[Rfam]
RNA sequence: CGUUUGUGAACGAACGGUCGAAAAAGGUUUGUCGUAAGAAGUCAGCUGAGGCCAUAGUAGCUACUGUUUAGGUAGUAAAGGGC
Numbered sequence: 001c002g003u004u005u006g007u008g009a010a011c012g013a014a015c016g017g018u019c020g021a022a023a024a025a026g027g028u029u030u031g032u033c034g035u036a037a038g039a040a041g042u043c044a045g046c047u048g049a050g051g052c053c054a055u056a057g058u059a060g061c062u063a064c065u066g067u068u069u070a071g072g073u074a075g076u077a078a079a080g081g082g083c
Base pairs, nucleotide, nucleotide: 001016002015003014004013005012006011042049043048051083052082053081060076061075062074063073064072065071

Group II catalytic intron D1-D4-1: an 83-nucleotide sequence from Tetragenococcus muriaticus. From the family's description: Group II introns are found in rRNA, tRNA and mRNA of organelles in fungi, plants and protists, and also in mRNA in bacteria. Taxonomically the source falls in Tetragenococcus muriaticus (Bacteria, Bacillati, Bacilli, Lactobacillales). Pairs were carried over by alignment from the consensus structure.